The family of this 111-nucleotide RNA sequence is "DUF3800-I RNA".
RNA sequence: UAAAGAUGCAGGAGGUGCAAGCCUCGCUGUAAACCCGCUCCACCGAACGUGAGUUUAAGCGAUGUGUGCCAUCGUCGGCAGCGGGGGCCGCGUAAGCGGCUUUUUUUAUGC
Numbered sequence: 001u002a003a004a005g006a007u008g009c010a011g012g013a014g015g016u017g018c019a020a021g022c023c024u025c026g027c028u029g030u031a032a033a034c035c036c037g038c039u040c041c042a043c044c045g046a047a048c049g050u051g052a053g054u055u056u057a058a059g060c061g062a063u064g065u066g067u068g069c070c071a072u073c074g075u076c077g078g079c080a081g082c083g084g085g086g087g088c089c090g091c092g093u094a095a096g097c098g099g100c101u102u103u104u105u106u107u108a109u110g111c
Stems, first nucleotide, its partner, number of pairs: 007031005012025005034085006043078003046055003059075006086101006
From the family's description: Actinobacteria, Firmicutes, Fusobacteria, Proteobacteria (1 example), Tenericutes (2 examples).